Burkholderia RNA 11: a 122-nucleotide sequence from Paraburkholderia steynii. Co-purified with Hfq, expression confirmed by Northern blot. Predicted target marZ. Overlaps coding sequence. Rfam links the family to the GO term protein binding. Rfam classes the family as a small RNA.
RNA sequence: GCAAUCUGAAACUGGCGCGUCAGAACCGGACAGUGUUUCUUAGCCUGCUUGGUAUUUCCUGGCUGUGGUUCGUUGGCGCGACGUUCCUGUCUUCGUUCUUCCGGUUCGCGAAGGACGUGCUG
Numbered sequence: 001g002c003a004a005u006c007u008g009a010a011a012c013u014g015g016c017g018c019g020u021c022a023g024a025a026c027c028g029g030a031c032a033g034u035g036u037u038u039c040u041u042a043g044c045c046u047g048c049u050u051g052g053u054a055u056u057u058c059c060u061g062g063c064u065g066u067g068g069u070u071c072g073u074u075g076g077c078g079c080g081a082c083g084u085u086c087c088u089g090u091c092u093u094c095g096u097u098c099u100u101c102c103g104g105u106u107c108g109c110g111a112a113g114g115a116c117g118u119g120c121u122g
Base pairs, nucleotide, nucleotide: 010049012047014045015044019040022037023036025034026033051121052120053119054118055117057115058114059113060112064104067099068098071095072094075091076090077089078088080087